Background:
Bacterial RNase P class A: a 413-nucleotide RNA sequence from Pelagivirga sediminicola. A search with the family's covariance model found it, with a score of 284 bits.

RNA sequence: GCGGAGGGCUGGAUGGCCGCUUUGGCAGGGGCAACCCUGCCGGGGAGGAAAGUCCGGACUCCACAAGGCAACGGUGCCGGGUAACGCCCGGCCGGAGCAAUCCGAGGGAAAGCGCCACAGAAAACAGACCGUGCCCGUUUAUCGGGCGUAAGGGUGAAACGGUGGGGUAAGAGCCCACCGCGGGGCUGGCAACAGCACCGGCACGGCAAGCCCCACCGGGAGCAAUGCCAAAUAGGGACCGCGCGCGGGGCAGGUCGGGUUUCCCGAUACCGCCCGCAGGCACGUCUUGGCCCGGCGGUCCGGGUUGGCAGCCAAAGGGGCGGUGGCAACAUCGUCUUCAGAUGAAUGGUCAUCCAGGGGGCGGGUCUUGGCCCGUCUCUGGACAGAAUCCGGCUUACAGGCCCUCCGCGCAU
Numbered sequence: 001g002c003g004g005a006g007g008g009c010u011g012g013a014u015g016g017c018c019g020c021u022u023u024g025g026c027a028g029g030g031g032c033a034a035c036c037c038u039g040c041c042g043g044g045g046a047g048g049a050a051a052g053u054c055c056g057g058a059c060u061c062c063a064c065a066a067g068g069c070a071a072c073g074g075u076g077c078c079g080g081g082u083a084a085c086g087c088c089c090g091g092c093c094g095g096a097g098c099a100a101u102c103c104g105a106g107g108g109a110a111a112g113c114g115c116c117a118c119a120g121a122a123a124a125c126a127g128a129c130c131g132u133g134c135c136c137g138u139u140u141a142u143c144g145g146g147c148g149u150a151a152g153g154g155u156g157a158a159a160c161g162g163u164g165g166g167g168u169a170a171g172a173g174c175c176c177a178c179c180g181c182g183g184g185g186c187u188g189g190c191a192a193c194a195g196c197a198c199c200g201g202c203a204c205g206g207c208a209a210g211c212c213c214c215a216c217c218g219g220g221a222g223c224a225a226u227g228c229c230a231a232a233u234a235g236g237g238a239c240c241g242c243g244c245g246c247g248g249g250g251c252a253g254g255u256c257g258g259g260u261u262u263c264c265c266g267a268u269a270c271c272g273c274c275c276g277c278a279g280g281c282a283c284g285u286c287u288u289g290g291c292c293c294g295g296c297g298g299u300c301c302g303g304g305u306u307g308g309c310a311g312c313c314a315a316a317g318g319g320g321c322g323g324u325g326g327c328a329a330c331a332u333c334g335u336c337u338u339c340a341g342a343u344g345a346a347u348g349g350u351c352a353u354c355c356a357g358g359g360g361g362c363g364g365g366u367c368u369u370g371g372c373c374c375g376u377c378u379c380u381g382g383a384c385a386g387a388a389u390c391c392g393g394c395u396u397a398c399a400g401g402c403c404c405u406c407c408g409c410g411c412a413u
Stems, first nucleotide, its partner, number of pairs: 001409010011398001012354007020045009050396003054393005059222004072218005077091005092106001093104004107213002112211002114207003129153002131149007161179006180202001181200003185196004226310004236301006280293001283290001318337008